[Rfam]
This 78-nucleotide RNA sequence from Homo sapiens belongs to the Rfam family "mir-544 microRNA precursor family". A reference for the family is Chiang et al. (2010), "Mammalian microRNAs: experimental evaluation of novel and previously annotated genes", Genes Dev. Rfam 15.1 lists 10,750 matches to the family in 132 species.

RNA sequence: GGAAUUUUGUUAAAAUGCAGAAUCCAUUUCUGUAGCUCUGAGACUAGACCUGAGGUUGUGCAUUUCUAACAAAGUGCC
Numbered sequence: 001g002g003a004a005u006u007u008u009g010u011u012a013a014a015a016u017g018c019a020g021a022a023u024c025c026a027u028u029u030c031u032g033u034a035g036c037u038c039u040g041a042g043a044c045u046a047g048a049c050c051u052g053a054g055g056u057u058g059u060g061c062a063u064u065u066c067u068a069a070c071a072a073a074g075u076g077c078c
Stems, first nucleotide, its partner, number of pairs: 001077001003075001006073007013065003017061003021057001023055002